Shown here is a 506-nucleotide RNA sequence from Streptomyces sp. ADI95-17, a member of the family "Saccharopolyspora sRNA 350".
The family has 2 seed sequences and 1,170 matches in Rfam 15.1.
The family's RNA type in Rfam is antisense RNA.
The literature on the family includes a 2013 paper in PLoS One by Liu et al., "Prediction and characterization of small non-coding RNAs related to secondary metabolites in Saccharopolyspora erythraea".
The base pairs follow the family's consensus structure, which was predicted with RNAfold.
The source organism's lineage runs through Bacteria, Bacillati, Actinomycetes, Kitasatosporales and Streptomyces.
RNA sequence: CGGGCGGUGUACUCCCAGGCGGCCUCGCCGUCGACCAGUGCCUGGUCCCCGAAGUAGGCCCCGUCGGCGUGGACCCCGAGCACCGUCUCGUCCCCGUAGGGGCCGGUGCCGAUCUUCUCGACCUUUCCGUGCGCCAGCAGGUAGACGCUGUCCGCCGCGUCCCCCGCCGCGGCCAGCACCUGUCCCGCCGCGACCUCGCGCUGCUCGCACCGCCGGGCGAGCUCGCCCAGCACUUCCUCGUCGCCGAAGUCCCGCAGGGCGGGGAGCUCACCGAGCUCGGCGGGAAUGACCGCGACCCGGUCACCGGUCUGCACGAAGGUCACCCUGCCGUCCCCGACCGAGUAGCUCAGUCGGCGGUUCACCCGGUAGGUACCACCUUGCACCUGCACCCACGGCAGCAUCUUCAGCAGCCACCGCGAGGUGAUCUCCUGCAUCUGCGGGGCGGACUUGGUGGUCGUCGCGAGGUUCCGCGCCGCUGCCGUCCCCAGACUCUGCUGCGGCGGCAA
Number, nucleotide and partner (000 for none) at each position: 001c000002g000003g000004g000005c000006g390007g389008u388009g387010u386011a385012c000013u000014c000015c000016c380017a000018g328019g000020c000021g325022g324023c000024c000025u322026c000027g320028c319029c318030g000031u316032c315033g000034a000035c000036c311037a310038g309039u000040g000041c306042c000043u000044g000045g304046u303047c000048c000049c300050c299051g298052a000053a000054g233055u232056a000057g228058g227059c000060c225061c000062c000063g222064u000065c111066g110067g109068c108069g000070u000071g000072g103073a000074c102075c101076c100077c099078g000079a000080g000081c000082a097083c096084c000085g094086u000087c000088u000089c000090g000091u000092c000093c000094c085095c000096g083097u082098a000099g077100g076101g075102g074103c072104c000105g000106g000107u000108g068109c067110c066111g065112a000113u000114c000115u000116u000117c221118u220119c219120g218121a000122c216123c215124u000125u000126u000127c212128c000129g210130u209131g000132c000133g205134c000135c203136a202137g201138c000139a000140g000141g197142u000143a196144g195145a000146c000147g000148c000149u192150g191151u000152c000153c000154g189155c000156c187157g186158c000159g184160u000161c000162c000163c000164c000165c000166g173167c172168c000169g000170c000171g000172g167173c166174c000175a000176g000177c000178a000179c000180c000181u000182g000183u000184c159185c000186c157187g156188c000189c154190g000191c150192g149193a000194c000195c144196u143197c141198g000199c000200g000201c137202u136203g135204c000205u133206c000207g000208c000209a130210c129211c000212g127213c000214c000215g123216g122217g000218c120219g119220a118221g117222c063223u000224c000225g060226c000227c058228c057229a000230g000231c000232a055233c054234u000235u295236c294237c000238u000239c000240g290241u289242c288243g287244c000245c000246g000247a000248a000249g000250u282251c000252c280253c279254g278255c000256a277257g276258g000259g000260c000261g000262g269263g000264g000265a000266g000267c000268u000269c262270a000271c000272c000273g000274a000275g000276c257277u256278c254279g253280g252281c000282g250283g000284g000285a000286a000287u243288g242289a241290c240291c000292g000293c000294g236295a235296c000297c000298c051299g050300g049301u000302c000303a046304c045305c000306g041307g000308u000309c038310u037311g036312c000313a000314c000315g032316a031317a000318g029319g028320u027321c000322a025323c000324c022325c021326u000327g000328c018329c342330g000331u340332c000333c000334c000335c000336g000337a000338c000339c000340g331341a000342g329343u000344a000345g000346c000347u000348c000349a000350g000351u000352c000353g377354g376355c000356g374357g373358u000359u000360c000361a371362c370363c369364c000365g000366g000367u000368a000369g363370g362371u361372a000373c357374c356375a000376c354377c353378u000379u000380g016381c000382a000383c000384c000385u011386g010387c009388a008389c007390c006391c431392a430393c000394g428395g427396c000397a425398g000399c423400a422401u421402c000403u418404u000405c416406a000407g415408c000409a000410g000411c000412c000413a000414c000415c407416g405417c000418g403419a000420g000421g401422u400423g399424a000425u397426c000427u395428c394429c000430u392431g391432c000433a000434u000435c000436u000437g476438c475439g474440g473441g000442g471443c470444g469445g468446a467447c465448u464449u463450g000451g461452u460453g000454g000455u000456c000457g000458u000459c000460g452461c451462g000463a449464g448465g447466u000467u446468c445469c444470g443471c442472g000473c440474c439475g438476c437477u505478g504479c000480c502481g501482u500483c000484c499485c000486c497487a496488g495489a000490c000491u000492c000493u000494g000495c488496u487497g486498c000499g484500g482501c481502g480503g000504c478505a477506a000